[Rfam]
RNA sequence: GCAACCUGCAACUGGCGCGAAGCAACCUGGUGGUGUUCCGCUCGCUGCUGGGCAUCUCGUGGAUGUGGUUCUUCGGCGCGGUGUUCCUGUCGCAGUUCCCCAGCUUUGCCAAGGAGGUGCUG
Numbered sequence: 001g002c003a004a005c006c007u008g009c010a011a012c013u014g015g016c017g018c019g020a021a022g023c024a025a026c027c028u029g030g031u032g033g034u035g036u037u038c039c040g041c042u043c044g045c046u047g048c049u050g051g052g053c054a055u056c057u058c059g060u061g062g063a064u065g066u067g068g069u070u071c072u073u074c075g076g077c078g079c080g081g082u083g084u085u086c087c088u089g090u091c092g093c094a095g096u097u098c099c100c101c102a103g104c105u106u107u108g109c110c111a112a113g114g115a116g117g118u119g120c121u122g
Stems, first nucleotide, its partner, number of pairs: 010049001012047001014045001015043001017041003021037004026032001051121005057115002060112001062110001063105001067099002071095002074092005080087002
Burkholderia RNA 11: a 122-nucleotide sequence from Pulveribacter suum. Co-purified with Hfq, expression confirmed by Northern blot. Predicted target marZ. Overlaps coding sequence. Rfam classes the family as a small RNA. The base pairs follow the family's consensus structure, which was predicted with RNAfold. On this family, see Ramos et al., Genomics 2013: "Experimental identification of small non-coding regulatory RNAs in the opportunistic human pathogen Burkholderia cenocepacia J2315".